[Rfam]
RNA: pemK RNA
RNA sequence: AUAAUGAUACUCCCGCGUUGAACGCUUCACAGCAUUGCGCGGCGCACCCACAGGCAUGGGACGGGGUGAGAUUCCCGUGG
Numbered sequence: 001a002u003a004a005u006g007a008u009a010c011u012c013c014c015g016c017g018u019u020g021a022a023c024g025c026u027u028c029a030c031a032g033c034a035u036u037g038c039g040c041g042g043c044g045c046a047c048c049c050a051c052a053g054g055c056a057u058g059g060g061a062c063g064g065g066g067u068g069a070g071a072u073u074c075c076c077g078u079g080g
Stems, first nucleotide, its partner, number of pairs: 012077001013042006043063002047059002064076003